[Rfam]
Source information:
This 93-nucleotide RNA sequence from Bacillus salacetis belongs to the Rfam family "c-di-GMP-I riboswitch aptamer".

RNA sequence: GUCAGACAAAGGCAAACUCAUUGAAAAAUGAGGACGCAAAGUCACAGAUCUAAGGCAGGAAAAGGUUCUUGCUAGGAUGGCUGGAUUGCCUGA
Numbered sequence: 001g002u003c004a005g006a007c008a009a010a011g012g013c014a015a016a017c018u019c020a021u022u023g024a025a026a027a028a029u030g031a032g033g034a035c036g037c038a039a040a041g042u043c044a045c046a047g048a049u050c051u052a053a054g055g056c057a058g059g060a061a062a063a064g065g066u067u068c069u070u071g072c073u074a075g076g077a078u079g080g081c082u083g084g085a086u087u088g089c090c091u092g093a
Stems, first nucleotide, its partner, number of pairs: 012037002017032006040087004045083003048078003055072007

Taxonomically the source falls in Bacillus (Bacteria, Bacillati, Bacilli, Caryophanales).